[Rfam]
RNA sequence: GUAUAAAAGUGGCAUCUGUAAAUGGUAUAUGGGGCGAUUCUGGUUUAGCAAGACUAUCGCAACUAUGCAAAAAAGCAACGGCAAAUCCGUUGCUUUUUUGAGA
Numbered sequence: 001g002u003a004u005a006a007a008a009g010u011g012g013c014a015u016c017u018g019u020a021a022a023u024g025g026u027a028u029a030u031g032g033g034g035c036g037a038u039u040c041u042g043g044u045u046u047a048g049c050a051a052g053a054c055u056a057u058c059g060c061a062a063c064u065a066u067g068c069a070a071a072a073a074a075g076c077a078a079c080g081g082c083a084a085a086u087c088c089g090u091u092g093c094u095u096u097u098u099u100g101a102g103a
Base pairs, nucleotide, nucleotide: 004061009057010056011055012054017053019051023050024049026047032041033040034039066102068100069099070098071097072096073095075093076092077091078090079089080088081087
Shown here is a 103-nucleotide RNA sequence from Veillonella sp. oral taxon 780, a member of the family "Streptococcus sRNA SpF25". A reference for the family is Mann et al. (2012), "Control of virulence by small RNAs in Streptococcus pneumoniae", PLoS Pathog. The organism belongs to Veillonella sp. oral taxon 780, within Bacteria. The family's consensus secondary structure was predicted with mfold.